[Rfam]
RNA sequence: CAGCAUCGGUUGCCGACAUGAAAGGGGCCAUCCUGGCCCCUUUUUCGUGUGCGAUGGUGUGCAGCCGUGCGGCCCGUGAAGGAAUUCCGCCACGCGACUGGUCUUUGCUCGAAGAAAUUGCAGCAGCCUGCUGCCCAAGGAACUAUGUCGCCCGUCAAUCUCGCACUUGCACAAAUCUAUAUUGCACUGCAGUAUGGGUUGGGGCGGGAAUGCGAGCCGGGUUCGGAUAUCUACCGCCGUGCCCUUUCGCAUGCCAAUGCGAAGGAUCGGC
Numbered sequence: 001c002a003g004c005a006u007c008g009g010u011u012g013c014c015g016a017c018a019u020g021a022a023a024g025g026g027g028c029c030a031u032c033c034u035g036g037c038c039c040c041u042u043u044u045u046c047g048u049g050u051g052c053g054a055u056g057g058u059g060u061g062c063a064g065c066c067g068u069g070c071g072g073c074c075c076g077u078g079a080a081g082g083a084a085u086u087c088c089g090c091c092a093c094g095c096g097a098c099u100g101g102u103c104u105u106u107g108c109u110c111g112a113a114g115a116a117a118u119u120g121c122a123g124c125a126g127c128c129u130g131c132u133g134c135c136c137a138a139g140g141a142a143c144u145a146u147g148u149c150g151c152c153c154g155u156c157a158a159u160c161u162c163g164c165a166c167u168u169g170c171a172c173a174a175a176u177c178u179a180u181a182u183u184g185c186a187c188u189g190c191a192g193u194a195u196g197g198g199u200u201g202g203g204g205c206g207g208g209a210a211u212g213c214g215a216g217c218c219g220g221g222u223u224c225g226g227a228u229a230u231c232u233a234c235c236g237c238c239g240u241g242c243c244c245u246u247u248c249g250c251a252u253g254c255c256a257a258u259g260c261g262a263a264g265g266a267u268c269g270g271c
Stems, first nucleotide, its partner, number of pairs: 001059002004056005011049003015046002021043010061098001065094001067093001070089003075082001100235003106116001108114002118142002121139001123134001125132002145230005154222003160216006166208005172202001175199011236271004242265002246263007

The family of this 271-nucleotide RNA sequence from Mesorhizobium intechi is "Mesorhizobail RNA 15". NCBI's taxonomy places the organism under Bacteria, Pseudomonadati, Alphaproteobacteria, Phyllobacteriaceae, Mesorhizobium. From the family's description: Existence predicted via genome wide comparisons with 4 related strains. Analysed further by deep sequencing and Northern blot under various stress conditions. Widely expressed, accumulated heavily under most of the induction conditions, suggesting function in multiple cellular processes. The match comes from Rfam's covariance-model search (235 bits). The family's RNA type in Rfam is small RNA.